[Rfam]
Record summary
Shown here is a 204-nucleotide sequence from Acinetobacter defluvii, a member of the family "Acinetobacter sRNA 11". It scores 160 bits against the family's covariance model. On this family, see Sharma et al., PLoS One 2014: "Identification of novel regulatory small RNAs in Acinetobacter baumannii". Rfam classes the family as a small RNA.
RNA sequence: UAAUGCCCUUUUACAUAUAGCUAAGUUUGUCGAUAUAAGGCAUAAUGCCCAACAACGUCUGAGUGUCACAUCAUUGAGAAUAUUUACUAUUUGUGAUUAAUAUUCAUUUUCAAUCAUGCGACACUUUAAUCGCUAUCCCAUAUUUAAUAGGGAAUGGGACUCUUCACCGAGGUUGUAAAAUGAGACAAACAAUUUUAGCUGUAU
Numbered sequence: 001u002a003a004u005g006c007c008c009u010u011u012u013a014c015a016u017a018u019a020g021c022u023a024a025g026u027u028u029g030u031c032g033a034u035a036u037a038a039g040g041c042a043u044a045a046u047g048c049c050c051a052a053c054a055a056c057g058u059c060u061g062a063g064u065g066u067c068a069c070a071u072c073a074u075u076g077a078g079a080a081u082a083u084u085u086a087c088u089a090u091u092u093g094u095g096a097u098u099a100a101u102a103u104u105c106a107u108u109u110u111c112a113a114u115c116a117u118g119c120g121a122c123a124c125u126u127u128a129a130u131c132g133c134u135a136u137c138c139c140a141u142a143u144u145u146a147a148u149a150g151g152g153a154a155u156g157g158g159a160c161u162c163u164u165c166a167c168c169g170a171g172g173u174u175g176u177a178a179a180a181u182g183a184g185a186c187a188a189a190c191a192a193u194u195u196u197a198g199c200u201g202u203a204u
Stems, first nucleotide, its partner, number of pairs: 015204008025190007039049004052176005058135001063124005069118003073114007080103005136159006143153003160171003